[Rfam]
RNA sequence: UAGCAGUUGCGGCCUAGUUCGCGCAGACCGUCCGCAUUAGUUGACGGGCCUAUGUGAGUGGAUAGUGUGUGGAACAUUUAAGUUUAGCCGGUGGGGUAGCUGUGGAAUGCCGCCAUCCUAGCCUCACCGGUUGGCUUAU
Numbered sequence: 001u002a003g004c005a006g007u008u009g010c011g012g013c014c015u016a017g018u019u020c021g022c023g024c025a026g027a028c029c030g031u032c033c034g035c036a037u038u039a040g041u042u043g044a045c046g047g048g049c050c051u052a053u054g055u056g057a058g059u060g061g062a063u064a065g066u067g068u069g070u071g072g073a074a075c076a077u078u079u080a081a082g083u084u085u086a087g088c089c090g091g092u093g094g095g096g097u098a099g100c101u102g103u104g105g106a107a108u109g110c111c112g113c114c115a116u117c118c119u120a121g122c123c124u125c126a127c128c129g130g131u132u133g134g135c136u137u138a139u
Stems, first nucleotide, its partner, number of pairs: 009113005018058006065077004079138006088130010104118003
RT-12 RNA: a 139-nucleotide sequence from Pseudomonas putida. The source organism's lineage runs through Bacteria, Pseudomonadati, Pseudomonadota, Pseudomonadales and Pseudomonas putida.